[Rfam]
RNA sequence: GCCCCCGUCAUCGGGGAGUAGCCGCCCGGCAUUGCGACCGGGGCCUGCAUCAACAGACUUGUCCACGCGGACAUGGUGCAGGCAGCGAGCGGACGCGCGUGAAGCGCGCC
Numbered sequence: 001g002c003c004c005c006c007g008u009c010a011u012c013g014g015g016g017a018g019u020a021g022c023c024g025c026c027c028g029g030c031a032u033u034g035c036g037a038c039c040g041g042g043g044c045c046u047g048c049a050u051c052a053a054c055a056g057a058c059u060u061g062u063c064c065a066c067g068c069g070g071a072c073a074u075g076g077u078g079c080a081g082g083c084a085g086c087g088a089g090c091g092g093a094c095g096c097g098c099g100u101g102a103a104g105c106g107c108g109c110c
Stems, first nucleotide, its partner, number of pairs: 026041003043083010060073005
The record is a 110-nucleotide sequence from Pseudothauera lacus, which matches "Manganese Mn2+ riboswitch aptamer (yybP-ykoY)" in Rfam. Rfam describes the family as follows. This RNA was originally discovered in E. coli during a large scale screen and was named SraF. The family was later found to exist upstream of related families of protein genes in many bacteria, including the the yybP and ykoK genes in B. subtilis. The specific functions of these proteins are unknown, but this structured RNA element may be involved in their genetic regulation as a riboswitch. The match comes from Rfam's covariance-model search (67 bits). The base pairs follow the family's consensus structure.